[Rfam]
A member of the RNA family "small nucleolar RNA snoR137" from Populus tomentosa, 154 nucleotides long.
RNA sequence: GCUGCUUUUUACAGGUGAACUCUCUUCCUUUAAAUUAAGAGUGGGAGAUGUUCAUGUUUUCAAAGCAUAUAUUAAUUUAUGUUAUUGACAAUAUCAAACUACACAAUGCUAUUUUUGGUUUGCAACACUAUGUUGCCUAUCUCUUAUCACAUGU
Dot-bracket structure: ..((((((.......((((((((((..................))))).))))).......))))))...................((.((.(.......((..(.((.................)).)..))........).)).))......
Source information:
Rfam classes the family as an H/ACA-box small nucleolar RNA. A search with the family's covariance model found it, with a score of 81 bits. A reference for the family is Chen and Wu (2009), "Mining small RNA sequencing data: a new approach to identify small nucleolar RNAs in Arabidopsis", Nucleic Acids Res.